[Rfam]
RNA sequence: UGGUCAUUACCAAGGCUUUUAGGACGCAGUUUUCUCGUUUGUCACGGACAUGACCACAACACAUUUUCCCACUGGGUUUUCUCUCUGCCACGGUACUAGCAUUCCGCCUACUGGGGACAUUU
Numbered sequence: 001u002g003g004u005c006a007u008u009a010c011c012a013a014g015g016c017u018u019u020u021a022g023g024a025c026g027c028a029g030u031u032u033u034c035u036c037g038u039u040u041g042u043c044a045c046g047g048a049c050a051u052g053a054c055c056a057c058a059a060c061a062c063a064u065u066u067u068c069c070c071a072c073u074g075g076g077u078u079u080u081c082u083c084u085c086u087g088c089c090a091c092g093g094u095a096c097u098a099g100c101a102u103u104c105c106g107c108c109u110a111c112u113g114g115g116g117a118c119a120u121u122u
Stems, first nucleotide, its partner, number of pairs: 003054005010047002026042004068115004075108003086101003
Shown here is a 122-nucleotide RNA sequence from Phyllostomus discolor, a member of the family "Small nucleolar RNA SNORA32". The family's consensus secondary structure was predicted with RNAfold. NCBI's taxonomy places the organism under Eukaryota, Chordata, Eutheria, Boreoeutheria, Phyllostomus. About the family: ACA32 is a member of the H/ACA class of snoRNA that guide the sites of modification of uridines to pseudouridines. Its family is annotated with RNA processing and nucleolus in the Gene Ontology.